[Rfam]
RNA sequence: GUUGGCUAUGGAGAUAUGUGUCCCACCACCCUGGGUGGGAAGAUCGUGGGGACUCUGUGUGCUAUUGCAGGAGUGCUGACCAUCGCUCUGCCCGUCCCCGUCAUCGUCUCAAAC
Dot-bracket structure: ((..(..((((.(((..(.((...............((.(........((...........))..........).))................)).)..))).))))..)..))
Numbered sequence: 001g002u003u004g005g006c007u008a009u010g011g012a013g014a015u016a017u018g019u020g021u022c023c024c025a026c027c028a029c030c031c032u033g034g035g036u037g038g039g040a041a042g043a044u045c046g047u048g049g050g051g052a053c054u055c056u057g058u059g060u061g062c063u064a065u066u067g068c069a070g071g072a073g074u075g076c077u078g079a080c081c082a083u084c085g086c087u088c089u090g091c092c093c094g095u096c097c098c099c100g101u102c103a104u105c106g107u108c109u110c111a112a113a114c
Stems, first nucleotide, its partner, number of pairs: 001114002005110001008107004013102003018097001020095002037077002040074001049063002